[Rfam]
Overview:
transfer-messenger RNA: a 369-nucleotide RNA sequence from Agromyces kandeliae. Rfam links the family to the GO term RNA catabolic process. The family's consensus secondary structure is taken from published work.
RNA sequence: GGGGAUGAUCGGUUUCGACAUCGCCUGCGAGACUGCGAGAAGCGGGCCGAGGAUGCAGGGUUAUCUCGUGAACGCUCCCUGCGAAACAAUAACUGCCAAUAAGUCGCAGAACGACUACGCCCUCGCUGCCUAAGCGAGUCCGUUAGUCCGUCAGCCCGGGUUCGUUCCCGCCCCGGUCGCUGGCGUCAUCUAGGGAACUCGCUGUACGACGUCGCCUGAGCGUCGUACGGGACUUUCUUCAGGCUGGGCCCGUCGACCUGGCUGCCUGUGGCAAGGGUCGGGGCCGAUGAGAACGCUUCACAGGAUGCGCCCGGAGAAACCGCGGAAUCCCAGCGAUGGACGGGGGUUCAAUUCCCCCCAUCUCCACCA
Number, nucleotide and partner (000 for none) at each position: 001g365002g364003g363004g362005a361006u360007g359008a000009u000010c000011g000012g000013u000014u000015u000016c000017g000018a000019c338020a337021u336022c335023g334024c333025c000026u000027g330028c000029g000030a000031g000032a000033c325034u324035g323036c322037g321038a000039g320040a000041a000042g000043c313044g312045g311046g310047c309048c068049g067050a066051g065052g064053a000054u083055g082056c081057a080058g079059g078060g077061u000062u000063a000064u052065c051066u050067c049068g048069u000070g000071a000072a000073c000074g000075c000076u000077c060078c059079c058080u057081g056082c055083g054084a000085a000086a000087c000088a000089a000090u000091a000092a000093c000094u000095g000096c000097c000098a000099a000100u000101a000102a000103g000104u000105c000106g000107c000108a000109g000110a000111a000112c000113g000114a000115c000116u000117a000118c000119g000120c000121c000122c000123u000124c000125g000126c000127u136128g135129c134130c000131u000132a000133a000134g129135c128136g127137a000138g000139u000140c000141c000142g000143u000144u000145a000146g000147u000148c000149c185150g184151u183152c182153a181154g180155c000156c175157c000158g173159g172160g171161u170162u000163c000164g198165u197166u196167c195168c194169c193170g161171c160172c159173c158174c000175g156176g000177u000178c000179g000180c154181u153182g152183g151184c150185g149186u000187c000188a000189u000190c000191u000192a000193g169194g168195g167196a166197a165198c164199u000200c000201g000202c230203u229204g228205u227206a226207c225208g224209a223210c222211g000212u000213c000214g244215c243216c242217u241218g240219a000220g000221c000222g210223u209224c208225g207226u206227a205228c204229g203230g202231g000232a000233c000234u000235u000236u000237c000238u000239u000240c218241a217242g216243g215244c214245u000246g000247g285248g284249c283250c282251c281252g000253u000254c280255g279256a278257c000258c000259u000260g000261g272262c271263u000264g000265c000266c304267u303268g301269u300270g299271g262272c261273a000274a000275g000276g000277g000278u256279c255280g254281g251282g250283g249284c248285c247286g000287a000288u000289g000290a000291g000292a000293a000294c000295g000296c000297u000298u000299c270300a269301c268302a000303g267304g266305a000306u000307g000308c000309g047310c046311c045312c044313g043314g000315a000316g000317a000318a000319a000320c039321c037322g036323c035324g034325g033326a000327a000328u000329c000330c027331c000332a000333g024334c023335g022336a021337u020338g019339g000340a000341c000342g358343g357344g356345g355346g354347u000348u000349c000350a000351a000352u000353u000354c346355c345356c344357c343358c342359c007360a006361u005362c004363u003364c002365c001366a000367c000368c000369a000
Lineage of the source: Bacteria > Bacillati > Actinomycetota > Microbacteriaceae > Agromyces.